Source information: The record is a 146-nucleotide RNA sequence from Ramphastos sulfuratus, which matches "Small nucleolar RNA SNORA70" in Rfam.
[Rfam]
RNA sequence: UUGCAGCCCUUUAAGCCGGUCGUGGCCCCCUCCCCGUGGGUCCCGGCGUGCAUUGGCUGCGCACAGAGACCCCCCCCCGGCUGUGUAGGGCCCCCCCAGGUGCCACCCUCAGUGCUGGGGGGCCCAAAGGGGCCGGGGGGACAAAG
Numbered sequence: 001u002u003g004c005a006g007c008c009c010u011u012u013a014a015g016c017c018g019g020u021c022g023u024g025g026c027c028c029c030c031u032c033c034c035c036g037u038g039g040g041u042c043c044c045g046g047c048g049u050g051c052a053u054u055g056g057c058u059g060c061g062c063a064c065a066g067a068g069a070c071c072c073c074c075c076c077c078c079g080g081c082u083g084u085g086u087a088g089g090g091c092c093c094c095c096c097c098a099g100g101u102g103c104c105a106c107c108c109u110c111a112g113u114g115c116u117g118g119g120g121g122g123c124c125c126a127a128a129g130g131g132g133c134c135g136g137g138g139g140g141a142c143a144a145a146g
Stems, first nucleotide, its partner, number of pairs: 002052004019047004025041004079134003091121005

snoRNA U70 seems to be exclusive to mammals and is a member of the H/ACA class of snoRNA which contain H (ANANNA) and ACA box motifs. H/ACA box snoRNAs are involved in the conversion of uridines to pseudouridines (5-ribosyluracil) a constituent of structural RNAs (transfer, ribosomal, small nuclear, and small nucleolar).
The base pairs follow the family's consensus structure, which was predicted with PFOLD.
Its family is annotated with nucleolus and RNA processing in the Gene Ontology.